[Rfam]
RNA sequence: UCCCUAGUAGCUCAGACGGUAAAGCAUCUGCCUGCAAUGCAGGAGACCCAGGUUCAAUCCCUGGAUCAGGAA
Numbered sequence: 001u002c003c004c005u006a007g008u009a010g011c012u013c014a015g016a017c018g019g020u021a022a023a024g025c026a027u028c029u030g031c032c033u034g035c036a037a038u039g040c041a042g043g044a045g046a047c048c049c050a051g052g053u054u055c056a057a058u059c060c061c062u063g064g065a066u067c068a069g070g071a072a
Stems, first nucleotide, its partner, number of pairs: 001071003006066001010025003027043005048064005
tRNA: a 72-nucleotide RNA sequence from Muntiacus reevesi. It is annotated as a transfer RNA. It scores 46 bits against the family's covariance model. The base pairs follow the family's consensus structure, which is taken from published work. From the family's description: Transfer RNA (tRNA) molecules are approximately 80 nucleotides in length.